[Rfam]
Nucleotides: 081
Stems, first nucleotide, its partner, number of pairs: 001081001003079003008075020032044004046052002
Number, partner (000 for none) and nucleotide at each position: 001081u002000a003079g004078g005077g006000c007000u008075g009074a010073g011072g012071u013070a014069g015068u016067a017066g018065a019064u020063u021062g022061u023060a024059u025058a026057g027056u028000u029000g030000u031000g032044a033043g034042g035041u036000u037000g038000u039000a040000c041035a042034c043033c044032u045000c046052c047051u048000c049000u050000g051047a052046g053000a054000u055000a056027a057026c058025u059024a060023u061022g062021c063020a064019a065018u066017c067016u068015a069014c070013u071012g072011u073010c074009u075008u076000u077005c078004c079003u080000g081001a
Shown here is an 81-nucleotide sequence from Callorhinchus milii, a member of the family "let-7 microRNA precursor family".
Clan: let-7 microRNA precursor clan.
This family represents the microRNAs (miRNA) let-7 and mir-98. let-7 was identified from a study of developmental timing in C. elegans, and was later shown to be part of a much larger class of non-coding RNAs termed miRNAs.
Pairs were carried over by alignment from the consensus structure, which was predicted with RNAalifold.
The match comes from Rfam's covariance-model search (70 bits).